[Rfam]
RNA: L31-Firmicutes ribosomal protein leader
Organism: Lactobacillus hominis
RNA sequence: CUAUGAUCUGAAAGACUGAUCAUGGCAAAGGAG
Numbered sequence: 001c002u003a004u005g006a007u008c009u010g011a012a013a014g015a016c017u018g019a020u021c022a023u024g025g026c027a028a029a030g031g032a033g
Stems, first nucleotide, its partner, number of pairs: 001025008